[Rfam]
RNA sequence: CGGAGGCCGCCGCCGAAUCGCCCUCCCGGGCGAACCGGGGAACCACGUUCCCGGGGUGAAUCCGCCACGCGGUAGGGCGUCCUUCGGCCCGAACCCGUCAGCUAACCCGGUAGGCGGUGCCGAGAAGAAGG
Numbered sequence: 001c002g003g004a005g006g007c008c009g010c011c012g013c014c015g016a017a018u019c020g021c022c023c024u025c026c027c028g029g030g031c032g033a034a035c036c037g038g039g040g041a042a043c044c045a046c047g048u049u050c051c052c053g054g055g056g057u058g059a060a061u062c063c064g065c066c067a068c069g070c071g072g073u074a075g076g077g078c079g080u081c082c083u084u085c086g087g088c089c090c091g092a093a094c095c096c097g098u099c100a101g102c103u104a105a106c107c108c109g110g111u112a113g114g115c116g117g118u119g120c121c122g123a124g125a126a127g128a129a130g131g
Stems, first nucleotide, its partner, number of pairs: 011116004018033005034111006044053001054096003062072004075090004